[Rfam]
RNA: mir-393 microRNA precursor family
RNA sequence: AGAGGAAGGAUCCAAAGGGAUCGCAUUGAUCCUAAUUAAGGUGAAUUCUCCCCAUAUUUUCUUUAUAAUUGGCAAAUAAAUCACAAAAAUUUGCUUGGUUUUGGAUCAUGCUAUCUCUUUGGAUUCAUCCUUC
Numbered sequence: 001a002g003a004g005g006a007a008g009g010a011u012c013c014a015a016a017g018g019g020a021u022c023g024c025a026u027u028g029a030u031c032c033u034a035a036u037u038a039a040g041g042u043g044a045a046u047u048c049u050c051c052c053c054a055u056a057u058u059u060u061c062u063u064u065a066u067a068a069u070u071g072g073c074a075a076a077u078a079a080a081u082c083a084c085a086a087a088a089a090u091u092u093g094c095u096u097g098g099u100u101u102u103g104g105a106u107c108a109u110g111c112u113a114u115c116u117c118u119u120u121g122g123a124u125u126c127a128u129c130c131u132u133c
Stems, first nucleotide, its partner, number of pairs: 002132005008126014023111004028107005038096001